Shown here is an 84-nucleotide RNA from Cyprinus carpio, a member of the family "mir-221 microRNA precursor family". For this family Rfam cites "Parallel DNA pyrosequencing unveils new zebrafish microRNAs" (Soares et al., BMC Genomics, 2009). The family's consensus secondary structure was predicted with RNAalifold. NCBI's taxonomy places the organism under Eukaryota, Metazoa, Actinopteri, Neopterygii, Cyprinus. The sequence is in the family's curated seed alignment.
RNA sequence: GUGGUUUUGAACCUGGCAUACAGUGUAGAGAUCUGUGUUUGUCAAAUUACAGCUACAUUGUCUGCUGGGUUUCAGAGCCGCUUC
Number, nucleotide and partner (000 for none) at each position: 001g000002u000003g000004g000005u000006u000007u000008u000009g000010a000011a000012c000013c068014u067015g066016g065017c064018a063019u000020a061021c060022a059023g058024u057025g056026u055027a054028g053029a000030g000031a000032u000033c052034u051035g050036u049037g000038u000039u000040u000041g000042u000043c000044a000045a000046a000047u000048u000049a036050c035051a034052g033053c028054u027055a026056c025057a024058u023059u022060g021061u020062c000063u018064g017065c016066u015067g014068g013069g000070u000071u000072u000073c000074a000075g000076a000077g000078c000079c000080g000081c000082u000083u000084c000